[Rfam]
RNA sequence: UAGAUAAAUCUGAAAACUUUCCUAGAAAGUGGACUAAUUAAUCUUCUGUGAAGCUAUUAUGAGGAUUGCCCUUUGAGGUUAUAGCAAUAGGUCGCCCUAUGAUUAGUCACAUGCAUUUAUUUG
Numbered sequence: 001u002a003g004a005u006a007a008a009u010c011u012g013a014a015a016a017c018u019u020u021c022c023u024a025g026a027a028a029g030u031g032g033a034c035u036a037a038u039u040a041a042u043c044u045u046c047u048g049u050g051a052a053g054c055u056a057u058u059a060u061g062a063g064g065a066u067u068g069c070c071c072u073u074u075g076a077g078g079u080u081a082u083a084g085c086a087a088u089a090g091g092u093c094g095c096c097c098u099a100u101g102a103u104u105a106g107u108c109a110c111a112u113g114c115a116u117u118u119a120u121u122u123g
Stems, first nucleotide, its partner, number of pairs: 001123009016030005032108007040067007053085005087100005
The record is a 123-nucleotide sequence, which matches "Staphylococcus-1 RNA" in Rfam. Pairs were carried over by alignment from the consensus structure, which is taken from published work.